[Rfam]
RNA sequence: AUAAUCGGAAUAGCGCCAGGCCUCAUGACUGAGGUGACGAGGAGAGAGCUUAUCGAAAGAUUCGGCGGGUGGCUCUAGGGACUGCACUCUACAGGUCAAAAGAAAAAAUUCAUUGUAAAAUGAUAACAAACUUUUGGCUACGCAGACAG
Numbered sequence: 001a002u003a004a005u006c007g008g009a010a011u012a013g014c015g016c017c018a019g020g021c022c023u024c025a026u027g028a029c030u031g032a033g034g035u036g037a038c039g040a041g042g043a044g045a046g047a048g049c050u051u052a053u054c055g056a057a058a059g060a061u062u063c064g065g066c067g068g069g070u071g072g073c074u075c076u077a078g079g080g081a082c083u084g085c086a087c088u089c090u091a092c093a094g095g096u097c098a099a100a101a102g103a104a105a106a107a108a109u110u111c112a113u114u115g116u117a118a119a120a121u122g123a124u125a126a127c128a129a130a131c132u133u134u135u136g137g138c139u140a141c142g143c144a145g146a147c148a149g
Stems, first nucleotide, its partner, number of pairs: 020035006045076005053065004077090004094139007110123005
RNA: glmS glucosamine-6-phosphate activated ribozyme aptamer